[Rfam]
RNA sequence: UGACGCACGCGCGAUGAGGCUCGCGCCCAACCGCCCUCCGGGGCUGAUGGCCUCUACCAACCC
Numbered sequence: 001u002g003a004c005g006c007a008c009g010c011g012c013g014a015u016g017a018g019g020c021u022c023g024c025g026c027c028c029a030a031c032c033g034c035c036c037u038c039c040g041g042g043g044c045u046g047a048u049g050g051c052c053u054c055u056a057c058c059a060a061c062c063c
Base pairs, nucleotide, nucleotide: 010025011024012023013022016054017053018052019051020050021049033044034043035042036041

Notes:
Shown here is a 63-nucleotide RNA sequence from Gaiella occulta, a member of the family "Fluoride riboswitch aptamer (crcB RNA motif)". Taxonomically the source falls in Gaiella (Bacteria, Actinomycetota, Thermoleophilia, Gaiellales). A search with the family's covariance model found it, with a score of 41 bits.